[Rfam]
Nucleotides: 177
Base pairs, nucleotide, nucleotide: 002015003014004013005012006011028177029176031174036169041163042162043161044160045159046157047156048155049154050153062152063151064150065149066148067147073144074143075142077140078139079138080137081136082135083134087115088114089113090112093108094107095106096105
Number, partner (000 for none) and nucleotide at each position: 001000g002015u003014u004013g005012u006011c007000g008000u009000g010000a011006g012005a013004c014003a015002g016000g017000g018000u019000c020000u021000g022000a023000a024000g025000g026000a027000a028177g029176u030000c031174c032000a033000a034000u035000c036169c037000g038000a039000a040000a041163c042162u043161g044160c045159g046157g047156g048155g049154c050153g051000a052000u053000g054000a055000a056000c057000a058000a059000g060000a061000a062152c063151c064150g065149g066148a067147u068000a069000u070000g071000a072000g073144g074143c075142g076000u077140g078139g079138u080137g081136u082135a083134u084000c085000u086000g087115g088114g089113g090112c091000g092000a093108g094107c095106g096105g097000g098000c099000a100000c101000g102000u103000g104000a105096c106095c107094g108093u109000g110000a111000a112090g113089c114088c115087c116000u117000c118000u119000a120000u121000c122000u123000g124000c125000g126000g127000c128000a129000g130000c131000a132000a133000g134083g135082u136081g137080c138079a139078c140077u141000u142075u143074g144073u145000a146000a147067a148066u149065c150064c151063g152062g153050c154049g155048u156047c157046c158000a159045u160044g161043c162042a163041g164000g165000g166000a167000a168000g169036g170000u171000a172000a173000c174031g175000u176029g177028u
Rfam assigns this 177-nucleotide RNA sequence from Thauera sp. 27 to the family "Group II catalytic intron D1-D4-3". Rfam describes the family as follows. Group II introns are found in rRNA, tRNA and mRNA of organelles in fungi, plants and protists, and also in mRNA in bacteria. A search with the family's covariance model found it, with a score of 127 bits.